The record is a 116-nucleotide RNA sequence from Lysobacter sp., which matches "Xanthomonadaceae sRNA sX13" in Rfam. The source organism's lineage runs through Bacteria, Pseudomonadati, Pseudomonadota, Lysobacterales and Lysobacter. The family's consensus secondary structure was predicted with CMfinder. The literature on the family includes a 2011 paper in Nucleic Acids Res by Schmidtke et al., "Genome-wide transcriptome analysis of the plant pathogen Xanthomonas identifies sRNAs with putative virulence functions".

[Rfam]
RNA sequence: AAGGUCUGUCGCACGAUCUCUCCCUCCCCUGGAGUGAUCCCCGGAACGAACGACUCCUCCCCAAGUCCUCGUUCCCCAGCCCCGCAGGCCCACCCCCUGGCUUGCGGGGCUUUUUA
Numbered sequence: 001a002a003g004g005u006c007u008g009u010c011g012c013a014c015g016a017u018c019u020c021u022c023c024c025u026c027c028c029c030u031g032g033a034g035u036g037a038u039c040c041c042c043g044g045a046a047c048g049a050a051c052g053a054c055u056c057c058u059c060c061c062c063a064a065g066u067c068c069u070c071g072u073u074c075c076c077c078a079g080c081c082c083c084g085c086a087g088g089c090c091c092a093c094c095c096c097c098u099g100g101c102u103u104g105c106g107g108g109g110c111u112u113u114u115u116a
Stems, first nucleotide, its partner, number of pairs: 006011001015039004020034004043075007052067004078111008087102004